The family of this 119-nucleotide sequence from Lachnospiraceae bacterium 2_1_46FAA is "FMN riboswitch aptamer (RFN element)". Rfam describes the family as follows. The RFN element is a highly conserved domain that is found frequently in the 5'-untranslated regions of prokaryotic mRNAs that encode for flavin mononucleotide (FMN) biosynthesis and transport proteins. The source organism's lineage runs through Bacteria, Bacillati, Bacillota, Clostridia and Lachnospiraceae. Pairs were carried over by alignment from the consensus structure, which is taken from published work.
[Rfam]
RNA sequence: AGGAUUCUUCAGGGAUAUGUGAAAUUCAUUACCGGCGGUAACAGUCCGCGAGCCAUGAGAAUGGUUGAUUUGGUGUAAUUCCAAAACCGACAGUAAAGUCUGGAAGAGAGAAGAAAAUC
Numbered sequence: 001a002g003g004a005u006u007c008u009u010c011a012g013g014g015a016u017a018u019g020u021g022a023a024a025u026u027c028a029u030u031a032c033c034g035g036c037g038g039u040a041a042c043a044g045u046c047c048g049c050g051a052g053c054c055a056u057g058a059g060a061a062u063g064g065u066u067g068a069u070u071u072g073g074u075g076u077a078a079u080u081c082c083a084a085a086a087c088c089g090a091c092a093g094u095a096a097a098g099u100c101u102g103g104a105a106g107a108g109a110g111a112a113g114a115a116a117a118u119c
Base pairs, nucleotide, nucleotide: 005115006114007113008112009111010110017029018028019027031099032098033089034088035049036048037047038046044087045086052065053064054063069085070084071083072082073081091102092101093100
Dot-bracket structure: ....((((((......(((.......))).[[((((((.....[[))))..(((........)))...(((((.......)))))]])).(((....]]))).......))))))....